Shown here is a 139-nucleotide RNA from Pogona vitticeps, a member of the family "Small nucleolar RNA SNORA49". Rfam 15.1 lists 722 matches to the family in 550 species. Rfam classes the family as an H/ACA-box small nucleolar RNA. The snoRNA ACA49 has no identified RNA target.
RNA sequence: CAUCCUCAGUUUUACUCCAGGGCCUCUCUGAACCAUGAAAUGACCUGGCAUUGCCUGAGGGUACUUUAAAACCUUACUCAAUCCCCUCCCCAACAGGUAUUCUGAGUUUCCUUUGGAGUCUACAGGUUGAGCAAACAUA
Numbered sequence: 001c002a003u004c005c006u007c008a009g010u011u012u013u014a015c016u017c018c019a020g021g022g023c024c025u026c027u028c029u030g031a032a033c034c035a036u037g038a039a040a041u042g043a044c045c046u047g048g049c050a051u052u053g054c055c056u057g058a059g060g061g062u063a064c065u066u067u068a069a070a071a072c073c074u075u076a077c078u079c080a081a082u083c084c085c086c087u088c089c090c091c092a093a094c095a096g097g098u099a100u101u102c103u104g105a106g107u108u109u110c111c112u113u114u115g116g117a118g119u120c121u122a123c124a125g126g127u128u129g130a131g132c133a134a135a136c137a138u139a
Base pairs, nucleotide, nucleotide: 003061004060005059006058007057008056009055011053017048018047019046020045021044025040027038028037075133077131079129080128088118090116091115092114093113095112096111097110099109